[Rfam]
RNA sequence: AUUUGUGGUCUGGGGUGCCUUUUGGCUGAGAUAAUACCCAUGGAACCUGAUGCAGUUGACGCUGCCGUAGGAAGAUCAACCCUGAAAGAC
Numbered sequence: 001a002u003u004u005g006u007g008g009u010c011u012g013g014g015g016u017g018c019c020u021u022u023u024g025g026c027u028g029a030g031a032u033a034a035u036a037c038c039c040a041u042g043g044a045a046c047c048u049g050a051u052g053c054a055g056u057u058g059a060c061g062c063u064g065c066c067g068u069a070g071g072a073a074g075a076u077c078a079a080c081c082c083u084g085a086a087a088g089a090c
Base pairs, nucleotide, nucleotide: 006078007077008076009075010074011040012039013038014037016034017026018025019024046071047070048069049068052065053064054063055062
TPP riboswitch aptamer (THI element): a 90-nucleotide RNA sequence from Loigolactobacillus bifermentans. Rfam links the family to the GO term thiamine pyrophosphate binding. Lineage of the source: Bacteria > Bacillota > Lactobacillales > Loigolactobacillus > Loigolactobacillus bifermentans. A search with the family's covariance model found it, with a score of 65 bits.